[Rfam]
RNA sequence: CUUGAUCGACCCCAGCCACAGCGGCUCGUCCCGCUCCCGACCGUAGGCGGCCAGCAACGCCUGCGCCUC
Numbered sequence: 001c002u003u004g005a006u007c008g009a010c011c012c013c014a015g016c017c018a019c020a021g022c023g024g025c026u027c028g029u030c031c032c033g034c035u036c037c038c039g040a041c042c043g044u045a046g047g048c049g050g051c052c053a054g055c056a057a058c059g060c061c062u063g064c065g066c067c068u069c
Stems, first nucleotide, its partner, number of pairs: 014026004031065001032059002037054001039052001041050003

The family of this 69-nucleotide RNA sequence from Microbispora oryzae is "ASpks TB sRNA". NCBI's taxonomy places the organism under Bacteria, Bacillati, Actinomycetes, Streptosporangiales, Microbispora. It scores 72 bits against the family's covariance model. The family's consensus secondary structure is taken from published work. On this family, see Arnvig and Young, Mol Microbiol 2009: "Identification of small RNAs in Mycobacterium tuberculosis".